[Rfam]
RNA sequence: UCGCGUCAUGCGCCGUGGGCAGGAGCGGGGGAACCAAGGUAAGUGCCGGUCCCGGGAGUUGAGAGACACCCGGGAACGGCUUGGGGUUAAGCCGCGUGCCGGACGUCCUGGAGACGGGACGGGGGCGCGUGGCCGGGCAACUCAACCGGCCCGAACCCGACAGCUCACCUCGCAGGCGUCGGUGAGGGGAUCA
Numbered sequence: 001u002c003g004c005g006u007c008a009u010g011c012g013c014c015g016u017g018g019g020c021a022g023g024a025g026c027g028g029g030g031g032a033a034c035c036a037a038g039g040u041a042a043g044u045g046c047c048g049g050u051c052c053c054g055g056g057a058g059u060u061g062a063g064a065g066a067c068a069c070c071c072g073g074g075a076a077c078g079g080c081u082u083g084g085g086g087u088u089a090a091g092c093c094g095c096g097u098g099c100c101g102g103a104c105g106u107c108c109u110g111g112a113g114a115c116g117g118g119a120c121g122g123g124g125g126c127g128c129g130u131g132g133c134c135g136g137g138c139a140a141c142u143c144a145a146c147c148g149g150c151c152c153g154a155a156c157c158c159g160a161c162a163g164c165u166c167a168c169c170u171c172g173c174a175g176g177c178g179u180c181g182g183u184g185a186g187g188g189g190a191u192c193a
Base pairs, nucleotide, nucleotide: 003177004176009024011022025173026172027171028170029169030168035083036082037081038080084158085157086156092132093131094130095129096128097127098126099125100124135152136151137150138149
Dot-bracket structure: ..((....(.(..........).)((((((....((((.........................................))))(((.....(((((((((.......................)))))))))..((((..........))))...))).........))))))..))................

Rfam assigns this 193-nucleotide sequence from Streptomyces populi to the family "c-di-AMP riboswitch aptamer (ydaO/yuaA leader)". NCBI's taxonomy places the organism under Bacteria, Bacillati, Actinomycetota, Streptomycetaceae, Streptomyces. It scores 57 bits against the family's covariance model.